[Rfam]
RNA sequence: UGGCCGCAGAAUAAGUUAUUUUGUGGCCACUUUGAGUUACGAUAAUAUUACUAUAUUAAUUUACGAGAUUAUGGUAACUCCUUUCUAAGUGAUUUACUAUAACAUUAUGGUAAGUAUCAUCUUGAAUUAUAAUAACCCAUGUAUCAUAAAUGUGUAUUGUCAUUAUCAUAAAUUGGUACAAACAUUAUCGUAAAUCAAGAUGGCCAUAGAAUAAGUUAUUCUGUAGCCA
Numbered sequence: 001u002g003g004c005c006g007c008a009g010a011a012u013a014a015g016u017u018a019u020u021u022u023g024u025g026g027c028c029a030c031u032u033u034g035a036g037u038u039a040c041g042a043u044a045a046u047a048u049u050a051c052u053a054u055a056u057u058a059a060u061u062u063a064c065g066a067g068a069u070u071a072u073g074g075u076a077a078c079u080c081c082u083u084u085c086u087a088a089g090u091g092a093u094u095u096a097c098u099a100u101a102a103c104a105u106u107a108u109g110g111u112a113a114g115u116a117u118c119a120u121c122u123u124g125a126a127u128u129a130u131a132a133u134a135a136c137c138c139a140u141g142u143a144u145c146a147u148a149a150a151u152g153u154g155u156a157u158u159g160u161c162a163u164u165a166u167c168a169u170a171a172a173u174u175g176g177u178a179c180a181a182a183c184a185u186u187a188u189c190g191u192a193a194a195u196c197a198a199g200a201u202g203g204c205c206a207u208a209g210a211a212u213a214a215g216u217u218a219u220u221c222u223g224u225a226g227c228c229a
Base pairs, nucleotide, nucleotide: 001229002228003227004226006224007223008222009221010220011219012218013217014216016214017213018212019211020210021209022208023207024206025205026204027203028202029201031199032198033197037193038192039191040190041189042188043187044186045185046184052180054178055177056176057175058174059173060172061171062170063169067167068166069165071163072162073161076157082149083148089144090143091142094139095134096133098131099130100129101128102127105124110118

The family of this 229-nucleotide RNA from Miscanthus lutarioriparius is "MIR6217 microRNA precursor family". The base pairs follow the family's consensus structure, which was predicted with RNAalifold.